RAGATH-18 RNA: a 73-nucleotide RNA.

[Rfam]
RNA sequence: CCUUUGGCGUGCACUAGAACUUGUGAGUAGCUGCUGAACUUUCAGAGCAAAAACAUGCACGAUGAAUAAGGAA
Numbered sequence: 001c002c003u004u005u006g007g008c009g010u011g012c013a014c015u016a017g018a019a020c021u022u023g024u025g026a027g028u029a030g031c032u033g034c035u036g037a038a039c040u041u042u043c044a045g046a047g048c049a050a051a052a053a054c055a056u057g058c059a060c061g062a063u064g065a066a067u068a069a070g071g072a073a
Base pairs, nucleotide, nucleotide: 001071002070003069004068009060010059011058012057013056022055023054024053030048031047032046034045035044
The family's RNA type in Rfam is small RNA.